[Rfam]
Nucleotides: 061
Base pairs, nucleotide, nucleotide: 017045018044019043020042021041022040023039024038025037026036
Number, partner (000 for none) and nucleotide at each position: 001000u002000g003000u004000g005000a006000g007000c008000c009000c010000c011000a012000u013000a014000a015000a016000g017045g018044g019043g020042g021041u022040a023039g024038u025037u026036c027000c028000c029000c030000a031000u032000u033000c034000a035000a036026g037025a038024g039023c040022u041021a042020c043019u044018u045017u046000a047000c048000c049000a050000u051000a052000u053000u054000c055000u056000g057000a058000a059000u060000u061000c